The family of this 131-nucleotide RNA sequence from Vitis vinifera is "MIR845_2 microRNA precursor family". The base pairs follow the family's consensus structure, which was predicted with WAR.
[Rfam]
RNA sequence: AGAAUACACAUUAAUUAUCUCUAGGGCCAUGGGAAAAACAAAAAACCUGGAAAAAUAAGUUAGCACACCCUAUAAUGGUUCUAGCAUGAUUAUUAACCUAUGACUCUGAUACUAGUUGAUGGGAAAAACCU
Dot-bracket structure: ........((((((((.....(((((.((((((..............((...((.((...(((......)))...)).))....))..........)))))).))))).....))))))))..........
Background: The literature on the family includes a 2007 paper in Nature by Jaillon et al., "The grapevine genome sequence suggests ancestral hexaploidization in major angiosperm phyla". It scores 136 bits against the family's covariance model. Taxonomically the source falls in Vitis (Eukaryota, Mesangiospermae, Gunneridae, Vitales).